Shown here is a 188-nucleotide RNA sequence from Paraburkholderia phytofirmans, a member of the family "Manganese Mn2+ riboswitch aptamer (yybP-ykoY)". NCBI's taxonomy places the organism under Bacteria, Pseudomonadati, Burkholderiaceae, Paraburkholderia, Paraburkholderia phytofirmans. The sequence is in the family's curated seed alignment.
RNA sequence: CCGUUAAAAUCCCCCGGUCACUGGGGAGUAGCCUUCCUUCAUCCAUUGAAGGAGAGCGCGUCAACAUACUUGGCCUGCGGGUCAUGGCGCGUUCGACCGGGUCGGUUUGGCGAGACCAUUGACGCACUGCCUCGUUCUGGUCGGACGGGCGGCGGUGCGUCAUUGGUUUGUUAUCGACGUCCGACCGC
Numbered sequence: 001c002c003g004u005u006a007a008a009a010u011c012c013c014c015c016g017g018u019c020a021c022u023g024g025g026g027a028g029u030a031g032c033c034u035u036c037c038u039u040c041a042u043c044c045a046u047u048g049a050a051g052g053a054g055a056g057c058g059c060g061u062c063a064a065c066a067u068a069c070u071u072g073g074c075c076u077g078c079g080g081g082u083c084a085u086g087g088c089g090c091g092u093u094c095g096a097c098c099g100g101g102u103c104g105g106u107u108u109g110g111c112g113a114g115a116c117c118a119u120u121g122a123c124g125c126a127c128u129g130c131c132u133c134g135u136u137c138u139g140g141u142c143g144g145a146c147g148g149g150c151g152g153c154g155g156u157g158c159g160u161c162a163u164u165g166g167u168u169u170g171u172u173a174u175c176g177a178c179g180u181c182c183g184a185c186c187g188c
Base pairs, nucleotide, nucleotide: 036052037051038050054094055093056092057091058090059089060088061087062086063085071084072083073082074081075080101188